[Rfam]
RNA sequence: GAAUAAGGUAGAGGUGCGGUUAAGAAGAGUAUGCAUUGCACAGAAUACGGAUAGUAUUCAGCGGAACAGCCAUUCCGGUGCAUGCAGAAAGGCAAAACCGCCGAAGAGGGUGCCCGGCAACGCAUCUUCUGGGCACAGGCUGAACAAGCUUGUGACUGUCAUCAUGGAUUGAUGGAGCGCUAUCGGCAUA
Number, nucleotide and partner (000 for none) at each position: 001g000002a000003a000004u000005a000006a000007g184008g183009u182010a181011g180012a000013g000014g000015u000016g101017c100018g099019g098020u097021u096022a000023a000024g093025a000026a000027g000028a000029g000030u000031a000032u086033g085034c084035a083036u082037u000038g081039c080040a079041c000042a000043g000044a000045a000046u000047a000048c000049g000050g000051a000052u000053a000054g000055u000056a000057u000058u000059c000060a000061g000062c000063g000064g000065a000066a000067c000068a000069g000070c000071c000072a000073u000074u000075c000076c000077g000078g000079u040080g039081c038082a036083u035084g034085c033086a032087g000088a000089a000090a000091g000092g000093c024094a000095a000096a021097a020098c019099c018100g017101c016102c000103g000104a000105a130106g129107a128108g127109g126110g125111u124112g123113c122114c000115c000116g000117g000118c000119a000120a000121c000122g113123c112124a111125u110126c109127u108128u107129c106130u105131g157132g156133g000134c154135a153136c152137a151138g150139g149140c148141u147142g000143a000144a000145c000146a000147a141148g140149c139150u138151u137152g136153u135154g134155a000156c132157u131158g000159u175160c174161a173162u172163c171164a170165u000166g000167g000168a000169u000170u164171g163172a162173u161174g160175g159176a000177g000178c000179g000180c011181u010182a009183u008184c007185g000186g000187c000188a000189u000190a000
Lysine riboswitch aptamer: a 190-nucleotide sequence from Ruminococcus champanellensis. Rfam links the family to the GO term lysine biosynthetic process. The organism belongs to Ruminococcus champanellensis, within Bacteria. Pairs were carried over by alignment from the consensus structure, which is taken from published work.